[Rfam]
RNA: FMN riboswitch aptamer (RFN element)
RNA sequence: UAUAACCUUCAGGGCAGGGUGAAAUUCCCGACCGGCGGUAACGUGAAAACGAAGCCCGCGAGCCGUAUAGGCUGAUCUGGUGUAAUUCCAGAGCCGACAGUAAAGUCUGGAUGGGAGAAGGUGAUU
Numbered sequence: 001u002a003u004a005a006c007c008u009u010c011a012g013g014g015c016a017g018g019g020u021g022a023a024a025u026u027c028c029c030g031a032c033c034g035g036c037g038g039u040a041a042c043g044u045g046a047a048a049a050c051g052a053a054g055c056c057c058g059c060g061a062g063c064c065g066u067a068u069a070g071g072c073u074g075a076u077c078u079g080g081u082g083u084a085a086u087u088c089c090a091g092a093g094c095c096g097a098c099a100g101u102a103a104a105g106u107c108u109g110g111a112u113g114g115g116a117g118a119a120g121g122u123g124a125u126u
Stems, first nucleotide, its partner, number of pairs: 003124001005122006017029003031106002033096002035059004054094002062072003076092005098109003